[Rfam]
RNA sequence: GGCGGGUCUCCCCGCAUUGCAAGGUGGUGAAUCUGGUCAGGUCCGGAAGGAAGCAGCCACAGCUACUGCAGCAAGUGCCGGGGGUAAGGCUCGCCACA
Numbered sequence: 001g002g003c004g005g006g007u008c009u010c011c012c013c014g015c016a017u018u019g020c021a022a023g024g025u026g027g028u029g030a031a032u033c034u035g036g037u038c039a040g041g042u043c044c045g046g047a048a049g050g051a052a053g054c055a056g057c058c059a060c061a062g063c064u065a066c067u068g069c070a071g072c073a074a075g076u077g078c079c080g081g082g083g084g085u086a087a088g089g090c091u092c093g094c095c096a097c098a
Stems, first nucleotide, its partner, number of pairs: 004092005009084006015075001017074004023067006034059004042051003

This 98-nucleotide sequence from Georgfuchsia toluolica belongs to the Rfam family "Bacterial small signal recognition particle RNA". The family is grouped with related families in Rfam's "SRP clan". Rfam describes the family as follows. The signal recognition particle (SRP) is a universally conserved ribonucleoprotein involved in the co-translational targeting of proteins to membranes. The literature on the family includes a 2003 paper in Nucleic Acids Res by Rosenblad et al., "SRPDB: Signal Recognition Particle Database". By type it is a non-coding RNA gene.